The record is a 91-nucleotide RNA from Erysipelotrichaceae bacterium RD49, which matches "TPP riboswitch aptamer (THI element)" in Rfam. Taxonomically the source falls in Erysipelotrichaceae (Bacteria, Bacillota, Erysipelotrichia, Erysipelotrichales). The base pairs follow the family's consensus structure, which is taken from published work.

RNA sequence: GAGUCACGACAGGGGUGCCGUUAACCGGCUGAGAUUACCCUUUGAACCUGAUCUAGUUAGAACUAGCGUAGGAAGUCGCAAGACGAUCUGC
Numbered sequence: 001g002a003g004u005c006a007c008g009a010c011a012g013g014g015g016u017g018c019c020g021u022u023a024a025c026c027g028g029c030u031g032a033g034a035u036u037a038c039c040c041u042u043u044g045a046a047c048c049u050g051a052u053c054u055a056g057u058u059a060g061a062a063c064u065a066g067c068g069u070a071g072g073a074a075g076u077c078g079c080a081a082g083a084c085g086a087u088c089u090g091c
Stems, first nucleotide, its partner, number of pairs: 007078004011041004017029004047072004053066004